[Rfam]
About this RNA
The family of this 109-nucleotide RNA sequence from Pristionchus pacificus is "SL2 RNA". Rfam's curators write: This family represents SL2 RNA. SL2 RNA is involved in trans splicing in lower eukaryotes. Trans-splicing is a form of RNA processing. The match comes from Rfam's covariance-model search (47 bits). Clan: SL clan. The base pairs follow the family's consensus structure, which is taken from published work. It is annotated as a non-coding RNA gene. Taxonomically the source falls in Pristionchus (Eukaryota, Nematoda, Rhabditina, Diplogasteromorpha).
RNA sequence: GGUUUAUACCCAGUAUCUCAAGGUACGCUUGGGCUUCUGACCAGAAAAUCUCUGUGUUGGACAACCAACAGUUUUUGGGCAGCUCUGCGGGGGAUAUCCUGAGAGCAAC
Number, nucleotide and partner (000 for none) at each position: 001g000002g000003u000004u000005u000006a000007u000008a035009c032010c031011c000012a000013g028014u027015a000016u025017c000018u023019c000020a000021a000022g000023g018024u000025a016026c000027g014028c013029u000030u000031g010032g009033g000034c000035u008036u000037c000038u059039g058040a057041c056042c054043a053044g052045a051046a000047a000048a000049u000050c000051u045052c044053u043054g042055u000056g041057u040058u039059g038060g000061a000062c000063a000064a000065c000066c000067a000068a000069c000070a000071g000072u000073u000074u000075u000076u000077g000078g000079g000080c000081a000082g000083c000084u107085c000086u105087g000088c103089g000090g000091g100092g099093g098094a000095u000096a000097u000098c093099c092100u091101g000102a000103g088104a000105g086106c000107a084108a000109c000